[Rfam]
RNA: serC leader
Organism: Pseudoprimorskyibacter insulae
RNA sequence: CAGCGGGACACUCCUCCCCAACGAGGAGCGACUAUCUGUAAGGGUACUACAA
Numbered sequence: 001c002a003g004c005g006g007g008a009c010a011c012u013c014c015u016c017c018c019c020a021a022c023g024a025g026g027a028g029c030g031a032c033u034a035u036c037u038g039u040a041a042g043g044g045u046a047c048u049a050c051a052a
Base pairs, nucleotide, nucleotide: 011028012027013026014025015024016023033046034045035044036043037042